Description: Rfam assigns this 88-nucleotide RNA from Scardovia inopinata to the family "RNA anti-toxin A".

RNA sequence: UAAUGAGAAUACAAACAGGGAGUACCCCCGUAAGAGUACUCCCCUAGCAGAGCCGUUAAAGACGGCUGGCAUAGAAUUUCAAUCUAAA
Numbered sequence: 001u002a003a004u005g006a007g008a009a010u011a012c013a014a015a016c017a018g019g020g021a022g023u024a025c026c027c028c029c030g031u032a033a034g035a036g037u038a039c040u041c042c043c044c045u046a047g048c049a050g051a052g053c054c055g056u057u058a059a060a061g062a063c064g065g066c067u068g069g070c071a072u073a074g075a076a077u078u079u080c081a082a083u084c085u086a087a088a
Stems, first nucleotide, its partner, number of pairs: 024037002027034001052067001053065005
Notes: Rfam classes the family as an antitoxin RNA. The literature on the family includes a 2010 paper in Nucleic Acids Res by Fozo et al., "Abundance of type I toxin-antitoxin systems in bacteria: searches for new candidates and discovery of novel families". It scores 50 bits against the family's covariance model. The family has 16 seed sequences and 190 matches in Rfam 15.1. Lineage of the source: Bacteria > Actinomycetes > Bifidobacteriaceae > Scardovia > Scardovia inopinata.